[Rfam]
RNA sequence: GAAAAGAUAGGUGAGAAUCCUAUCCGUCGAAAACCUAAGGUUUCCAGAGGAAGGCUCGUCCGCUCUGGGUAAGUCGGGACCUAAGGUGAGGCUGAAAAGCGUAGCCGAUGGACAACAGGUAGAAAUUCCUGUACUGCCUAAAUGACUGAUGGAGUGACGGAGAAGGCUAGGGUGAGCGUGUGACUGGUAGAGCACGUCGAAGCAGUAAGGCUAAUUAGUAGGCAAAUCCGCUAAUUGUAAGGCUGAGCUGUGAUCGGGAAAGCACCUGAUGUCAUGCUUCCAAGAAAAACUUCUAGGGUUAAUCAUAUAGGUACCCGUACCGAUAACCGACACAGGUAGGUGAGGAGAGAAUCCUAAGACGCG
Dot-bracket structure: .....((((((.......))))))((((....((((..((...((((((...((.....)).))))))......((((.((...(((.(.(((....))).).)))...))...(((((........)))))..((((((.((((((...(((((...((((..(((..(((((.((((((..........))))))((..((((...(((.(((((((.((.....))))))))).....)))...))))...))......)))))...)))...))))........)))))...))....)))).))))))))))..)).....((......)).)))).((((.....))))..))))..
The family of this 363-nucleotide part of an RNA from Haloplasma contractile is "Bacterial large subunit ribosomal RNA". The base pairs follow the family's consensus structure, which is taken from published work.